[Rfam]
RNA sequence: ACCGCGCCUAGCCCGACGGGGCGAAAGCAGGGCUCCCUUACCCUGCUGUCGCGUUUCAUUUUAGGGG
Numbered sequence: 001a002c003c004g005c006g007c008c009u010a011g012c013c014c015g016a017c018g019g020g021g022c023g024a025a026a027g028c029a030g031g032g033c034u035c036c037c038u039u040a041c042c043c044u045g046c047u048g049u050c051g052c053g054u055u056u057c058a059u060u061u062u063a064g065g066g067g
Stems, first nucleotide, its partner, number of pairs: 001055001003053004008048001011022004028045005035067005